The record is a 127-nucleotide sequence from Leersia perrieri, which matches "Small nucleolar RNA Z206" in Rfam. The family has 6 seed sequences and 58 matches in Rfam 15.1. It is annotated as a C/D-box small nucleolar RNA. A search with the family's covariance model found it, with a score of 131 bits. The organism belongs to Leersia, within Eukaryota. On this family, see Chen et al., Nucleic Acids Res 2003: "The high diversity of snoRNAs in plants: identification and comparative study of 120 snoRNA genes from Oryza sativa".

[Rfam]
RNA sequence: AUAGGCGGGAUGAGGUCAAGGUGAGCGUGACGGUGCGCCGAUCAACGGCACUGCUGGGGCGCACCGGUACAGUGCAAGAAGGUGGGCCCCAGAUGGUCGAUGGGGUGAUGUGGUUCCGACCGGCGGC
Numbered sequence: 001a002u003a004g005g006c007g008g009g010a011u012g013a014g015g016u017c018a019a020g021g022u023g024a025g026c027g028u029g030a031c032g033g034u035g036c037g038c039c040g041a042u043c044a045a046c047g048g049c050a051c052u053g054c055u056g057g058g059g060c061g062c063a064c065c066g067g068u069a070c071a072g073u074g075c076a077a078g079a080a081g082g083u084g085g086g087c088c089c090c091a092g093a094u095g096g097u098c099g100a101u102g103g104g105g106u107g108a109u110g111u112g113g114u115u116c117c118g119a120c121c122g123g124c125g126g127c
Stems, first nucleotide, its partner, number of pairs: 004124001006122003